[Rfam]
RNA: T-box leader
Organism: Clostridium sp. CAG:75
RNA sequence: UGAAAUGCGAAGAAGAGAAGUAGUAACCAUAGAAUGGAAUGCAGAAAGCUGUUGGUUGAUGCGAAGCAGUGGAAGUGAUAUGGCGAACUCGUCUCGGAGCAGCCGGUUGAACUUUAGUAGAUCAGGACGGAUUCCCACCGUUAGAGGGGAAAGGUAUUGACAAGUUGUUGAUGUACCUGUGAGCGCAUGAUUUUCAUGAAUAAGAGUGGUAACGCGGAUGAUCCGUCUCUAUA
Numbered sequence: 001u002g003a004a005a006u007g008c009g010a011a012g013a014a015g016a017g018a019a020g021u022a023g024u025a026a027c028c029a030u031a032g033a034a035u036g037g038a039a040u041g042c043a044g045a046a047a048g049c050u051g052u053u054g055g056u057u058g059a060u061g062c063g064a065a066g067c068a069g070u071g072g073a074a075g076u077g078a079u080a081u082g083g084c085g086a087a088c089u090c091g092u093c094u095c096g097g098a099g100c101a102g103c104c105g106g107u108u109g110a111a112c113u114u115u116a117g118u119a120g121a122u123c124a125g126g127a128c129g130g131a132u133u134c135c136c137a138c139c140g141u142u143a144g145a146g147g148g149g150a151a152a153g154g155u156a157u158u159g160a161c162a163a164g165u166u167g168u169u170g171a172u173g174u175a176c177c178u179g180u181g182a183g184c185g186c187a188u189g190a191u192u193u194u195c196a197u198g199a200a201u202a203a204g205a206g207u208g209g210u211a212a213c214g215c216g217g218a219u220g221a222u223c224c225g226u227c228u229c230u231a232u233a
Base pairs, nucleotide, nucleotide: 007100008099015095016094017093018092027083028082029081030080031079048070049069050068051067052066053065103126104125105123106122107121108120128140129139130138186198187197188196189195190194203230204229205228206227214226215225216224217223218222